[Rfam]
A member of the RNA family "SAM-I/IV (S-adenosyl methionine) riboswitch aptamer", 90 nucleotides long. The base pairs follow the family's consensus structure, which is taken from published work.
Nucleotides: 090
Base pairs, nucleotide, nucleotide: 006062007061008060009059015026016025017024018023027054028053029052032050033049034048036045039087040086041085042084064075065074066073067072
Number, partner (000 for none) and nucleotide at each position: 001000a002000u003000c004000u005000u006062g007061c008060a009059u010000g011000a012000a013000g014000a015026g016025a017024g018023g019000g020000u021000a022000a023018c024017c025016u026015c027054a028053g029052c030000a031000a032050c033049c034048u035000a036045g037000a038000a039087a040086g041085c042084a043000a044000a045036c046000a047000a048034a049033g050032g051000u052029g053028c054027u055000a056000g057000a058000g059009a060008u061007g062006c063000g064075g065074u066073u067072u068000u069000u070000u071000a072067a073066a074065a075064c076000a077000a078000a079000a080000a081000a082000u083000a084042u085041g086040c087039u088000a089000c090000c